[Rfam]
RNA sequence: UUGGUUAGAAAUCUCCUCAGGCUGUCACCGCAACGGUGUCGGCACCACGCCCGUGACGCCGGCAGCGGGCAGACAAGGCAGAAGAUUUCUGCCUAACCUCGACAUGAGGUUCAUGGACAUUACAUAGUCAAC
Numbered sequence: 001u002u003g004g005u006u007a008g009a010a011a012u013c014u015c016c017u018c019a020g021g022c023u024g025u026c027a028c029c030g031c032a033a034c035g036g037u038g039u040c041g042g043c044a045c046c047a048c049g050c051c052c053g054u055g056a057c058g059c060c061g062g063c064a065g066c067g068g069g070c071a072g073a074c075a076a077g078g079c080a081g082a083a084g085a086u087u088u089c090u091g092c093c094u095a096a097c098c099u100c101g102a103c104a105u106g107a108g109g110u111u112c113a114u115g116g117a118c119a120u121u122a123c124a125u126a127g128u129c130a131a132c
Stems, first nucleotide, its partner, number of pairs: 021043004026038004049070006077093006095111006
RNA: rmf RNA
Organism: Pseudomonas sp. StFLB209